[Rfam]
RNA sequence: AUAUGAUAUAUUCACCUAGAUAGUCCUUUUUAGCCAUCUUUAGCUCCCGGUUUUUAAGGGCUAUCUUUUUUUAUGCUCCCC
Dot-bracket structure: ..................(((((((((....((((.............))))....)))))))))................
RNA: rhtB sRNA
Organism: Pelagibacterales bacterium SAG-MED30